[Rfam]
RNA sequence: CUGACUGCGAUUACCGUCCACACACGCACCGACACAUGCGACUGGGUGCCUUGAGAUUCAACUCAGGUGGUCACAUGGGGCGCGUGGAGGUCUCAAC
Numbered sequence: 001c002u003g004a005c006u007g008c009g010a011u012u013a014c015c016g017u018c019c020a021c022a023c024a025c026g027c028a029c030c031g032a033c034a035c036a037u038g039c040g041a042c043u044g045g046g047u048g049c050c051u052u053g054a055g056a057u058u059c060a061a062c063u064c065a066g067g068u069g070g071u072c073a074c075a076u077g078g079g080g081c082g083c084g085u086g087g088a089g090g091u092c093u094c095a096a097c
Stems, first nucleotide, its partner, number of pairs: 023086005029080002035077004040072004048068004
This 97-nucleotide sequence from Chromatium okenii belongs to the Rfam family "t44 RNA".
From the family's description: This family consists of a number of bacterial RNA genes of between 135 and 170 bases in length. The t44 gene has been identified in several species of enteric bacteria but homologs have also been identified in Pseudomonas and Coxiella species. The t44 gene is found between the map and rpsB genes in all species in the full alignment apart from Shigella flexneri. The function of this RNA is unknown.
The family's consensus secondary structure was predicted with LocARNA.
A reference for the family is Tjaden et al. (2002), "Transcriptome analysis of Escherichia coli using high-density oligonucleotide probe arrays", Nucleic Acids Res.
The organism belongs to Chromatium, within Bacteria.